The record is a 225-nucleotide RNA sequence from Aeromonas hydrophila, which matches "Lysine riboswitch aptamer" in Rfam. A search with the family's covariance model found it, with a score of 66 bits. The organism belongs to Aeromonas hydrophila subsp. hydrophila, within Bacteria. Gene Ontology term of the family: lysine biosynthetic process.

RNA sequence: GGAGCCAGAAGAGGAGCGCUGCCCAGGCAGCCCGAGGGAGGACACCAGUGUCCGGUGAACUUGGGUCAGGGGGAGCAGCGCCGAGACAUCUGAGGCAACUGGAUACCUCAGUGUCGGCUGCGGGGGCUGAAUCCCCCGGGUUGUCAUCGGUAGUGGUCAUCCCCCACCGCGCCCCGUCAGGGGCGGGUACGGGAUGGGCUCUGCGGGUGGAGUGCUUCUGGCCGG
Numbered sequence: 001g002g003a004g005c006c007a008g009a010a011g012a013g014g015a016g017c018g019c020u021g022c023c024c025a026g027g028c029a030g031c032c033c034g035a036g037g038g039a040g041g042a043c044a045c046c047a048g049u050g051u052c053c054g055g056u057g058a059a060c061u062u063g064g065g066u067c068a069g070g071g072g073g074a075g076c077a078g079c080g081c082c083g084a085g086a087c088a089u090c091u092g093a094g095g096c097a098a099c100u101g102g103a104u105a106c107c108u109c110a111g112u113g114u115c116g117g118c119u120g121c122g123g124g125g126g127c128u129g130a131a132u133c134c135c136c137c138g139g140g141u142u143g144u145c146a147u148c149g150g151u152a153g154u155g156g157u158c159a160u161c162c163c164c165c166a167c168c169g170c171g172c173c174c175c176g177u178c179a180g181g182g183g184c185g186g187g188u189a190c191g192g193g194a195u196g197g198g199c200u201c202u203g204c205g206g207g208u209g210g211a212g213u214g215c216u217u218c219u220g221g222c223c224g225g
Stems, first nucleotide, its partner, number of pairs: 006220006016081007024073001030066007085115005091110005116142004121138006144210005150204004